Rfam assigns this 80-nucleotide RNA from Cloeon dipterum to the family "mir-184 microRNA precursor family". On this family, see Chen et al., Genes Dev 2005: "The developmental miRNA profiles of zebrafish as determined by small RNA cloning". The base pairs follow the family's consensus structure, which was predicted with PFOLD. Rfam 15.1 lists 948 matches to the family in 823 species.
[Rfam]
RNA sequence: UCUCUUACGCUUCCUUACCAUUCUCUGGUCUUGUGUGACAUGCAUAACUGGACGGAGAACUGAUAAGGGCUUGUGAGAGA
Numbered sequence: 001u002c003u004c005u006u007a008c009g010c011u012u013c014c015u016u017a018c019c020a021u022u023c024u025c026u027g028g029u030c031u032u033g034u035g036u037g038a039c040a041u042g043c044a045u046a047a048c049u050g051g052a053c054g055g056a057g058a059a060c061u062g063a064u065a066a067g068g069g070c071u072u073g074u075g076a077g078a079g080a
Base pairs, nucleotide, nucleotide: 012069013068014067015066016065017064019062020061021059022058023057024056025055026054029051030050